[Rfam]
RNA sequence: CCCUGACAGACGCAAGGUGCGUCUGACAAUAGCCAAGACAGGAGAUCAUAAUG
Number, nucleotide and partner (000 for none) at each position: 001c000002c042003c041004u040005g039006a000007c025008a024009g023010a022011c021012g000013c000014a000015a000016g000017g000018u000019g000020c000021g011022u010023c009024u008025g007026a000027c000028a000029a000030u000031a000032g000033c000034c000035a000036a000037g000038a000039c005040a004041g003042g002043a000044g000045a000046u000047c000048a000049u000050a000051a000052u000053g000
RNA: Mu-gpT-DE RNA